[Rfam]
RNA sequence: CAGUCGAGAGGUCUGGCCUUUUCGGAUCGCGGAAGCUUGGUCUUCCCUUGACUG
Dot-bracket structure: ((((((((.(((((((.....)))))))..(((((......)))))))))))))
Numbered sequence: 001c002a003g004u005c006g007a008g009a010g011g012u013c014u015g016g017c018c019u020u021u022u023c024g025g026a027u028c029g030c031g032g033a034a035g036c037u038u039g040g041u042c043u044u045c046c047c048u049u050g051a052c053u054g
Stems, first nucleotide, its partner, number of pairs: 001054008010028007031046005

DUF3800-VI RNA: a 54-nucleotide RNA from Nodosilinea sp. LEGE 07088.
The organism belongs to Nodosilinea, within Bacteria.
Pairs were carried over by alignment from the consensus structure, which is taken from published work.
It scores 41 bits against the family's covariance model.